[Rfam]
RNA sequence: AUGUGCCCGGUGCCAACCGGCCACAACGGAGAAUGAUGGACGCGGACAUUUUGCCGGUUUCUGGCCGCGACAACAACGCAUUGGUACGCGCUGACAUCUAACCUGUUCCGGGC
Numbered sequence: 001a002u003g004u005g006c007c008c009g010g011u012g013c014c015a016a017c018c019g020g021c022c023a024c025a026a027c028g029g030a031g032a033a034u035g036a037u038g039g040a041c042g043c044g045g046a047c048a049u050u051u052u053g054c055c056g057g058u059u060u061c062u063g064g065c066c067g068c069g070a071c072a073a074c075a076a077c078g079c080a081u082u083g084g085u086a087c088g089c090g091c092u093g094a095c096a097u098c099u100a101a102c103c104u105g106u107u108c109c110g111g112g113c
Stems, first nucleotide, its partner, number of pairs: 006112004011023002014020001025107005035098004041069005047063001070085002074083001
RNA: Rhizobiales sRNA Atu_At1